[Rfam]
RNA sequence: UGCCUAAACCCGUAAUCUUCGGGCAUGGCAGAAAAACCUUUGCAGAUAUUAAGCUCGUCGUCAGAGCAUCUGCAAGGGUCAUGACUCGAAAGGGUUGUGGGUGGUCGUAAGAUCAUC
Numbered sequence: 001u002g003c004c005u006a007a008a009c010c011c012g013u014a015a016u017c018u019u020c021g022g023g024c025a026u027g028g029c030a031g032a033a034a035a036a037c038c039u040u041u042g043c044a045g046a047u048a049u050u051a052a053g054c055u056c057g058u059c060g061u062c063a064g065a066g067c068a069u070c071u072g073c074a075a076g077g078g079u080c081a082u083g084a085c086u087c088g089a090a091a092g093g094g095u096u097g098u099g100g101g102u103g104g105u106c107g108u109a110a111g112a113u114c115a116u117c
Stems, first nucleotide, its partner, number of pairs: 001030004009023004037078011053067004080099008100117006